[Rfam]
RNA sequence: AGGUUCCCUCGAGUGCCACCGCGGAGCUACAAUCGGGAGUCCCAGUGACUCUCAACGCGCUCUGAGCGAAGGUCCCUGGAUCUCGGGCAGAAAGUGCCGCAGCGUGAUCGCGCUGUUAGCCUCCGCCGUCGGCUCAUCGAAGAGAGGAAGCCUCUCGCGGCUGAUCUUUCGAGCCGGGCGCGAGUGUAUUGGUCAAAGUAAAGUAAUGUGCUUGCACGUCGCUUUGCGGCGAACUUAACAGGGCCUACUCCGAGGUAACU
Numbered sequence: 001a002g003g004u005u006c007c008c009u010c011g012a013g014u015g016c017c018a019c020c021g022c023g024g025a026g027c028u029a030c031a032a033u034c035g036g037g038a039g040u041c042c043c044a045g046u047g048a049c050u051c052u053c054a055a056c057g058c059g060c061u062c063u064g065a066g067c068g069a070a071g072g073u074c075c076c077u078g079g080a081u082c083u084c085g086g087g088c089a090g091a092a093a094g095u096g097c098c099g100c101a102g103c104g105u106g107a108u109c110g111c112g113c114u115g116u117u118a119g120c121c122u123c124c125g126c127c128g129u130c131g132g133c134u135c136a137u138c139g140a141a142g143a144g145a146g147g148a149a150g151c152c153u154c155u156c157g158c159g160g161c162u163g164a165u166c167u168u169u170c171g172a173g174c175c176g177g178g179c180g181c182g183a184g185u186g187u188a189u190u191g192g193u194c195a196a197a198g199u200a201a202a203g204u205a206a207u208g209u210g211c212u213u214g215c216a217c218g219u220c221g222c223u224u225u226g227c228g229g230c231g232a233a234c235u236u237a238a239c240a241g242g243g244c245c246u247a248c249u250c251c252g253a254g255g256u257a258a259c260u
Base pairs, nucleotide, nucleotide: 002260003259004258005257007255008254009253010252011251015211017210018209019208022064023063024062025061026060027059037051038050039049040048041047070246071245072244074243075242076241077240086098087097088096089095100115101114102113103112104111105110121184122183123182127180128179129178130177132175137172138171139170140168141167142166143165150161151160152159214230215229217228218227219226
RNA: RNase MRP
Organism: Nasonia vitripennis